RNA sequence: AAACCGCACCCACCCAUUCACGUACGGCAGGAGCGGGGGACCCAGGUAAGUCGCCGAUCCGGCAAUGCCGGACCGGCUCGGGGUGAAGCCGCGCCAACAGCGCGGCCGGGCAUCUCCCGCCCGAACCCGACAGCUCACCUCGCAGGCGACGGAGAGGAUUU
Number, nucleotide and partner (000 for none) at each position: 001a000002a000003a000004c000005c000006g000007c000008a000009c000010c000011c148012a000013c146014c145015c000016a000017u000018u032019c031020a000021c000022g000023u000024a000025c000026g000027g000028c000029a000030g000031g019032a018033g143034c142035g141036g140037g139038g138039g000040a000041c000042c000043c080044a000045g000046g000047u000048a000049a000050g000051u000052c000053g000054c000055c000056g000057a000058u000059c000060c000061g000062g000063c000064a000065a000066u000067g000068c000069c000070g000071g000072a000073c000074c000075g000076g000077c000078u000079c000080g043081g128082g127083g126084u000085g000086a000087a000088g000089c105090c104091g103092c102093g000094c000095c000096a000097a000098c000099a000100g000101c000102g092103c091104g090105g089106c000107c000108g122109g121110g120111c119112a000113u000114c000115u000116c000117c000118c000119g111120c110121c109122c108123g000124a000125a000126c083127c082128c081129g000130a000131c000132a000133g000134c000135u000136c000137a000138c038139c037140u036141c035142g034143c033144a000145g014146g013147c000148g011149a000150c000151g000152g000153a000154g000155a000156g000157g000158a000159u000160u000161u000
Rfam assigns this 161-nucleotide RNA from Streptomyces sp. S4.7 to the family "c-di-AMP riboswitch aptamer (ydaO/yuaA leader)". A search with the family's covariance model found it, with a score of 67 bits. On this family, see Barrick et al., Proc Natl Acad Sci U S A 2004: "New RNA motifs suggest an expanded scope for riboswitches in bacterial genetic control". About the family: This family represents a conserved RNA structure found upstream of the ydaO and yuaA genes in Bacillus subtilis and related genes in other bacteria.